Overview: The family of this 46-nucleotide RNA from Caldithrix abyssi is "Acido-Lenti-1 RNA". A search with the family's covariance model found it, with a score of 37 bits. The family's consensus secondary structure is taken from published work.

[Rfam]
RNA sequence: CCCGCCGUUGAAACGACGGGCUAUUCUCAAACGUCCCUACGGGACG
Dot-bracket structure: ((((.(((....))).))))............(((((...))))).